[Rfam]
RNA sequence: GGGCGGGAUAGGGGACGCCCGACAAGCCGAACCCCCCGGCUUCCCGCCCGCAUCUUUUUCUGGGGG
Dot-bracket structure: ((((((((..(((....))).....((((..[[[[[)))).))))))))............]]]]]
Numbered sequence: 001g002g003g004c005g006g007g008a009u010a011g012g013g014g015a016c017g018c019c020c021g022a023c024a025a026g027c028c029g030a031a032c033c034c035c036c037c038g039g040c041u042u043c044c045c046g047c048c049c050g051c052a053u054c055u056u057u058u059u060c061u062g063g064g065g066g
Stems, first nucleotide, its partner, number of pairs: 001049008011020003026040004032066005
The family of this 66-nucleotide RNA from Thermogutta terrifontis is "int-alpA RNA". It scores 40 bits against the family's covariance model. The family's consensus secondary structure is taken from published work. About the family: Acidobacteria (1 example), Planctomycetes (1 example), Proteobacteria. Lineage of the source: Bacteria > Pseudomonadati > Planctomycetia > Pirellulales > Thermogutta. By type it is a small RNA.